The record is a 74-nucleotide RNA from Schistosoma margrebowiei, which matches "mir-3492 microRNA precursor family" in Rfam.

RNA sequence: AACUUUCUGAAUCCGUGCCGAGAUUUCGUUAAAUACCAACCCUCCAUAAUGAGACUUCCAAGAUGAGUGAAGUA
Numbered sequence: 001a002a003c004u005u006u007c008u009g010a011a012u013c014c015g016u017g018c019c020g021a022g023a024u025u026u027c028g029u030u031a032a033a034u035a036c037c038a039a040c041c042c043u044c045c046a047u048a049a050u051g052a053g054a055c056u057u058c059c060a061a062g063a064u065g066a067g068u069g070a071a072g073u074a
Stems, first nucleotide, its partner, number of pairs: 002073005008067001011064003016060002020057003024054007

Gene Ontology terms of the family: miRNA-mediated post-transcriptional gene silencing and RISC complex. Lineage of the source: Eukaryota > Bilateria > Platyhelminthes > Neodermata > Schistosoma.